[Rfam]
This 283-nucleotide RNA from Cnephaeus nilssonii belongs to the Rfam family "Voltage-gated potassium-channel Kv1.4 IRES". It is annotated as an internal ribosome entry site. A reference for the family is Jang et al. (2004), "Structurally distinct elements mediate internal ribosome entry within the 5'-noncoding region of a voltage-gated potassium channel mRNA", J Biol Chem. The base pairs follow the family's consensus structure, which was predicted with RNAalifold. Gene Ontology term of the family: ribosome binding. Taxonomically the source falls in Cnephaeus (Eukaryota, Eumetazoa, Chordata, Gnathostomata).

RNA sequence: UAGGCUUGAGGGCGCUAGGCUGUUCACCUGGACCAGCCAAGCUCUGAAGAGCCAUGUCGAAUCCCCGGGAAGACAGAGCAUGGGGCGUGCUGAUUUAAAAACAGAAAAUGCAAAGCUGGACUGAAAAUAUCCUCAGUCUUCCCAGCAAUCUGCUUAAGGGUUCCAAACUUACCUUCCUUUGGUGAGCAAAAAGAAAAAAAAAAAAAGAAAAAGAAAAAGCUGCCCUAUUUUUCUUUCUUCUUCUACAACCGGAACCAGCCAUUUCCCCAAAGCCACCACCAUG
Numbered sequence: 001u002a003g004g005c006u007u008g009a010g011g012g013c014g015c016u017a018g019g020c021u022g023u024u025c026a027c028c029u030g031g032a033c034c035a036g037c038c039a040a041g042c043u044c045u046g047a048a049g050a051g052c053c054a055u056g057u058c059g060a061a062u063c064c065c066c067g068g069g070a071a072g073a074c075a076g077a078g079c080a081u082g083g084g085g086c087g088u089g090c091u092g093a094u095u096u097a098a099a100a101a102c103a104g105a106a107a108a109u110g111c112a113a114a115g116c117u118g119g120a121c122u123g124a125a126a127a128u129a130u131c132c133u134c135a136g137u138c139u140u141c142c143c144a145g146c147a148a149u150c151u152g153c154u155u156a157a158g159g160g161u162u163c164c165a166a167a168c169u170u171a172c173c174u175u176c177c178u179u180u181g182g183u184g185a186g187c188a189a190a191a192a193g194a195a196a197a198a199a200a201a202a203a204a205a206a207g208a209a210a211a212a213g214a215a216a217a218a219g220c221u222g223c224c225c226u227a228u229u230u231u232u233c234u235u236u237c238u239u240c241u242u243c244u245a246c247a248a249c250c251g252g253a254a255c256c257a258g259c260c261a262u263u264u265c266c267c268c269a270a271a272g273c274c275a276c277c278a279c280c281a282u283g
Stems, first nucleotide, its partner, number of pairs: 046266001048264003067242007075234004080228008089220003094215003102152004109147003118142003123138002169210002172207001